[Rfam]
RNA sequence: AUGACGAUGGCAGGGAGAGACCGGGCGGACAAUCUAGGAUCGCCAGGCACCGAAGGAGCAAGUCGACGGCCAGCCAGCCGGACGAUUAAUCUCUCAGGUAAAAAGAACCGCCAUCCGACG
Numbered sequence: 001a002u003g004a005c006g007a008u009g010g011c012a013g014g015g016a017g018a019g020a021c022c023g024g025g026c027g028g029a030c031a032a033u034c035u036a037g038g039a040u041c042g043c044c045a046g047g048c049a050c051c052g053a054a055g056g057a058g059c060a061a062g063u064c065g066a067c068g069g070c071c072a073g074c075c076a077g078c079c080g081g082a083c084g085a086u087u088a089a090u091c092u093c094u095c096a097g098g099u100a101a102a103a104a105g106a107a108c109c110g111c112c113a114u115c116c117g118a119c120g
Stems, first nucleotide, its partner, number of pairs: 006115006013109002021047002024044005049099003052095002056093003062086004